RNA sequence: UUCGGCCCCGCAACGGCUUCUCCGUUGCCCCCUGCUAGCCGUCGCCGACCGUCUCCUUUCGAUUUGCACGCGAUCCUGUCGCCUUCUCUGCGGCGCGGC
Numbered sequence: 001u002u003c004g005g006c007c008c009c010g011c012a013a014c015g016g017c018u019u020c021u022c023c024g025u026u027g028c029c030c031c032c033u034g035c036u037a038g039c040c041g042u043c044g045c046c047g048a049c050c051g052u053c054u055c056c057u058u059u060c061g062a063u064u065u066g067c068a069c070g071c072g073a074u075c076c077u078g079u080c081g082c083c084u085u086c087u088c089u090g091c092g093g094c095g096c097g098g099c
Stems, first nucleotide, its partner, number of pairs: 010028006038099004043095005070082005
Rfam assigns this 99-nucleotide RNA from Pseudomonas graminis to the family "Pseudomon-Rho RNA". By type it is a cis-regulatory element. The source organism's lineage runs through Bacteria, Pseudomonadota, Pseudomonadales, Pseudomonadaceae and Pseudomonas. A search with the family's covariance model found it, with a score of 91 bits.